[Rfam]
RNA: MIR4371 microRNA precursor family
RNA sequence: CUGUUAAGUGAUGACGUGACAAACAAAAUGUCAUGUUGUCACCCCUUAUCACUAAUACCUUAUUGUCAUGUCAUUAUUUUUAAUGAUGUGACAAUGUUGUGUCAAUGAUUAGACUUGAUGACGUGAUACUUCAUCUGUCAUGUCAUCACUUAAUGAAA
Numbered sequence: 001c002u003g004u005u006a007a008g009u010g011a012u013g014a015c016g017u018g019a020c021a022a023a024c025a026a027a028a029u030g031u032c033a034u035g036u037u038g039u040c041a042c043c044c045c046u047u048a049u050c051a052c053u054a055a056u057a058c059c060u061u062a063u064u065g066u067c068a069u070g071u072c073a074u075u076a077u078u079u080u081u082a083a084u085g086a087u088g089u090g091a092c093a094a095u096g097u098u099g100u101g102u103c104a105a106u107g108a109u110u111a112g113a114c115u116u117g118a119u120g121a122c123g124u125g126a127u128a129c130u131u132c133a134u135c136u137g138u139c140a141u142g143u144c145a146u147c148a149c150u151u152a153a154u155g156a157a158a
Base pairs, nucleotide, nucleotide: 002155003154004153005152006151007150008149009148010147011146012145013144014143015142016141017140018139019138020137021136023134026131027130029128030127031126032125033124034123035122036121037120038119039118040117041116045112046111048109049108050107051106055102056101057100058099070087071086072085073084074083